Rfam assigns this 62-nucleotide RNA sequence from Caenorhabditis elegans to the family "mir-51 microRNA precursor family". The family's consensus secondary structure was predicted with RNAalifold. The sequence is in the family's curated seed alignment. The source organism's lineage runs through Eukaryota, Protostomia, Rhabditomorpha, Rhabditidae and Caenorhabditis.
RNA sequence: UACCCGUAGCUCCUAUCCAUGUUACUGGUCAAAAAGUGAACAUGGAAGCAGGUACAGGUGCA
Dot-bracket structure: ((((.(((.(..((.(((((((((((........))).))))))))))..).))).))))..
Numbered sequence: 001u002a003c004c005c006g007u008a009g010c011u012c013c014u015a016u017c018c019a020u021g022u023u024a025c026u027g028g029u030c031a032a033a034a035a036g037u038g039a040a041c042a043u044g045g046a047a048g049c050a051g052g053u054a055c056a057g058g059u060g061c062a
Stems, first nucleotide, its partner, number of pairs: 001060004006055003010051001013048002016046008024037003
Rfam 15.1 lists 8 matches to the family in 6 species.